Overview
The record is a 148-nucleotide RNA from Ovis aries, which matches "Small nucleolar RNA SNORA79" in Rfam. About the family: ACA65 (SNORA79) is a member of the H/ACA class of snoRNAs that guide the sites of modification of uridines to pseudouridines. This snoRNA was identified by computational screening and its expression in mouse experimentally verified by Northern blot and primer extension analysis. Rfam links the family to the GO terms nucleolus and RNA processing. By type it is an H/ACA-box small nucleolar RNA.
RNA sequence: UCACGGCUGUUCCUUUCACUGCAUGGAGUCUUAGGUGGUGGUAUUACAAUCCAUCAUAUAUCUAAGCUGACAUGUCUUUCCUCAGGGCACCAUGAGGAUGGUUUGGCUGUUUUGUAGUGCCUUAGGAUUUUUGUGGAGUCACACAGUU
Dot-bracket structure: (.(.((.(.....(.(((.(((............))).))).).....).)).).)............(((.(........(((((((((.....(((((.......)))))....)))))))..))........).)))........